[Rfam]
RNA: Fluoride riboswitch aptamer (crcB RNA motif)
RNA sequence: UCGGGAUUCGGAGAUGGCGUUCCUCCGCGCAGUUCCAUCAAACCGUAGCGAUUGCUACUGAUGACGCCUACAAGAAC
Numbered sequence: 001u002c003g004g005g006a007u008u009c010g011g012a013g014a015u016g017g018c019g020u021u022c023c024u025c026c027g028c029g030c031a032g033u034u035c036c037a038u039c040a041a042a043c044c045g046u047a048g049c050g051a052u053u054g055c056u057a058c059u060g061a062u063g064a065c066g067c068c069u070a071c072a073a074g075a076a077c
Base pairs, nucleotide, nucleotide: 010026011025012024013023016068017067018066019065020064021063045058046057047056048055